[Rfam]
RNA sequence: CUCUUAUCCUGAGUUGGUGGAGGGAACAGGCCCUACGAAACCCAGCAACCUGCUUAUUAAGCAAAGGUGCUAACCUGGUGCAAGGCAAUGGUCCUUGAACGAUAAGAG
Numbered sequence: 001c002u003c004u005u006a007u008c009c010u011g012a013g014u015u016g017g018u019g020g021a022g023g024g025a026a027c028a029g030g031c032c033c034u035a036c037g038a039a040a041c042c043c044a045g046c047a048a049c050c051u052g053c054u055u056a057u058u059a060a061g062c063a064a065a066g067g068u069g070c071u072a073a074c075c076u077g078g079u080g081c082a083a084g085g086c087a088a089u090g091g092u093c094c095u096u097g098a099a100c101g102a103u104a105a106g107a108g
Stems, first nucleotide, its partner, number of pairs: 001108008013043001016042003022033003027080002030076001044071004049067002051063004081097005
This 108-nucleotide sequence from Peribacillus faecalis belongs to the Rfam family "SAM riboswitch aptamer (S box leader)".
The family is grouped with related families in Rfam's "SAM clan".
The organism belongs to Peribacillus, within Bacteria.
It scores 77 bits against the family's covariance model.